[Rfam]
RNA sequence: GCUUCCGAGGAGCGCUGCGAGGUGCCGCAAGGCCCCCAGGCUCGGACCCCGCCAGACCGUCGCCGGUCGCGGGCACAUUUGUAACGGCGCUCACCUGAA
Numbered sequence: 001g002c003u004u005c006c007g008a009g010g011a012g013c014g015c016u017g018c019g020a021g022g023u024g025c026c027g028c029a030a031g032g033c034c035c036c037c038a039g040g041c042u043c044g045g046a047c048c049c050c051g052c053c054a055g056a057c058c059g060u061c062g063c064c065g066g067u068c069g070c071g072g073g074c075a076c077a078u079u080u081g082u083a084a085c086g087g088c089g090c091u092c093a094c095c096u097g098a099a
Stems, first nucleotide, its partner, number of pairs: 004046005021035002024033003
Dot-bracket structure: ...(((((............((.(((....)))))......))))).....................................................